[Rfam]
This 95-nucleotide RNA sequence from Glycine max belongs to the Rfam family "Small nucleolar RNA snoR31/Z110/Z27". This family contains several related snoRNAs including R31, Z27 and Z110. The family's consensus secondary structure was predicted with PFOLD. The family's RNA type in Rfam is C/D-box small nucleolar RNA. On this family, see Barneche et al., J Mol Biol 2001: "Identification of 66 box C/D snoRNAs in Arabidopsis thaliana: extensive gene duplications generated multiple isoforms predicting new ribosomal RNA 2'-O-methylation sites". Lineage of the source: Eukaryota > Tracheophyta > rosids > Phaseoleae > Glycine subgen. Soja. The family has 8 seed sequences and 571 matches in Rfam 15.1.
RNA sequence: UACGUCAUGUGAUGAAUUUGGAAAAAUCUUAGGACACCUUCCUACACAGCAAACAAUGCUGUGGAUGAGAAUAAAUUUUCCAUGCUGAUGAUGUG
Numbered sequence: 001u002a003c004g005u006c007a008u009g010u011g012a013u014g015a016a017u018u019u020g021g022a023a024a025a026a027u028c029u030u031a032g033g034a035c036a037c038c039u040u041c042c043u044a045c046a047c048a049g050c051a052a053a054c055a056a057u058g059c060u061g062u063g064g065a066u067g068a069g070a071a072u073a074a075a076u077u078u079u080c081c082a083u084g085c086u087g088a089u090g091a092u093g094u095g
Base pairs, nucleotide, nucleotide: 001095002094003093004092005091006090007089